A member of the RNA family "Selenocysteine insertion sequence 4" from Enterocloster bolteae, 37 nucleotides long. The literature on the family includes a 2001 paper in Arch Microbiol by Graentzdoerffer et al., "Molecular analysis of the grd operon coding for genes of the glycine reductase and of the thioredoxin system from Clostridium sticklandii".
RNA sequence: GGGACCUGUACUCGUUGCGGCGCAACGAUGGCUAAGA
Number, nucleotide and partner (000 for none) at each position: 001g000002g000003g000004a000005c031006c030007u000008g000009u000010a000011c000012u000013c027014g026015u025016u024017g023018c022019g000020g000021c000022g018023c017024a016025a015026c014027g013028a000029u000030g006031g005032c000033u000034a000035a000036g000037a000
NCBI's taxonomy places the organism under Bacteria, Lachnospirales, Lachnospiraceae, Enterocloster, Enterocloster bolteae. Pairs were carried over by alignment from the consensus structure, which was predicted with PFOLD. Its family is annotated with selenocysteine incorporation in the Gene Ontology.